The record is a 174-nucleotide sequence from Rhodoferax sp. OV413, which matches "Manganese Mn2+ riboswitch aptamer (yybP-ykoY)" in Rfam. Lineage of the source: Bacteria > Pseudomonadati > Pseudomonadota > Betaproteobacteria > Rhodoferax. Its family is annotated with manganese ion binding in the Gene Ontology.
RNA sequence: CGAUGGGUCACUGGGGAGUAGCCGCCCGUCUCAAGACGGGGCUUGUAUCAACAUACUUGGCCGAAAGGCUAUGGUGCAAGCGGUUCAUAUUGAAAGCUUGGCAAGACCUUUGACCAUAAUGCCUUCGGAAUGGCCGGGGAGCGUUGUGGUCAAUCGUUUUGGAUUCCGGCCAAU
Numbered sequence: 001c002g003a004u005g006g007g008u009c010a011c012u013g014g015g016g017a018g019u020a021g022c023c024g025c026c027c028g029u030c031u032c033a034a035g036a037c038g039g040g041g042c043u044u045g046u047a048u049c050a051a052c053a054u055a056c057u058u059g060g061c062c063g064a065a066a067g068g069c070u071a072u073g074g075u076g077c078a079a080g081c082g083g084u085u086c087a088u089a090u091u092g093a094a095a096g097c098u099u100g101g102c103a104a105g106a107c108c109u110u111u112g113a114c115c116a117u118a119a120u121g122c123c124u125u126c127g128g129a130a131u132g133g134c135c136g137g138g139g140a141g142c143g144u145u146g147u148g149g150u151c152a153a154u155c156g157u158u159u160u161g162g163a164u165u166c167c168g169g170c171c172a173a174u
Stems, first nucleotide, its partner, number of pairs: 026039003041081010058071005087174002